[Rfam]
RNA sequence: AAAAAGGCAGAGAAAGGGAAGAGUACGCGGAGCACUGUGGAUUCAGAGAGGGGAUGGCCGGUGAAAAUCCCAGCCUCAGCCGCGGAAAGUAACCCCGGAGCCGUGAUUCGAAAGCGUGUUUGCGCCGUAGUUUUCACCGGGAGUUUCGCCGUUAUCAGGGACACCGCAUCUUUCGGUGCGGAAAGAGUGUGCGCACGGCAGCGCAAUUAUAGGUGGUACCGCGAAGUAAGCCUUCGUCCUAUUG
Numbered sequence: 001a002a003a004a005a006g007g008c009a010g011a012g013a014a015a016g017g018g019a020a021g022a023g024u025a026c027g028c029g030g031a032g033c034a035c036u037g038u039g040g041a042u043u044c045a046g047a048g049a050g051g052g053g054a055u056g057g058c059c060g061g062u063g064a065a066a067a068u069c070c071c072a073g074c075c076u077c078a079g080c081c082g083c084g085g086a087a088a089g090u091a092a093c094c095c096c097g098g099a100g101c102c103g104u105g106a107u108u109c110g111a112a113a114g115c116g117u118g119u120u121u122g123c124g125c126c127g128u129a130g131u132u133u134u135c136a137c138c139g140g141g142a143g144u145u146u147c148g149c150c151g152u153u154a155u156c157a158g159g160g161a162c163a164c165c166g167c168a169u170c171u172u173u174c175g176g177u178g179c180g181g182a183a184a185g186a187g188u189g190u191g192c193g194c195a196c197g198g199c200a201g202c203g204c205a206a207u208u209a210u211a212g213g214u215g216g217u218a219c220c221g222c223g224a225a226g227u228a229a230g231c232c233u234u235c236g237u238c239c240u241a242u243u244g
Stems, first nucleotide, its partner, number of pairs: 007101002016095003026084005039075002051071005104136002106133001109130001138151003190205005210241004221237005